This 107-nucleotide RNA sequence from Tessaracoccus rhinocerotis belongs to the Rfam family "mraW RNA". The match comes from Rfam's covariance-model search (56 bits). Taxonomically the source falls in Tessaracoccus (Bacteria, Bacillati, Actinomycetes, Propionibacteriaceae).
RNA sequence: CCGGCAGCUGAUGCGGUGGCUCCCGGCCGGAGCACGAGCCCUGACUUCACUUCCCCGAUGUCAGGUCAGGUGGCCGGAAGGGAACCAGCGCAGCAGGUGCGGAUGAG
Numbered sequence: 001c002c003g004g005c006a007g008c009u010g011a012u013g014c015g016g017u018g019g020c021u022c023c024c025g026g027c028c029g030g031a032g033c034a035c036g037a038g039c040c041c042u043g044a045c046u047u048c049a050c051u052u053c054c055c056c057g058a059u060g061u062c063a064g065g066u067c068a069g070g071u072g073g074c075c076g077g078a079a080g081g082g083a084a085c086c087a088g089c090g091c092a093g094c095a096g097g098u099g100c101g102g103a104u105g106a107g
Base pairs, nucleotide, nucleotide: 010094012092013091014090015089018086019085021083022082023081024080027077028076029075030074033072034071035070038067040065041064042063043062044061045060047058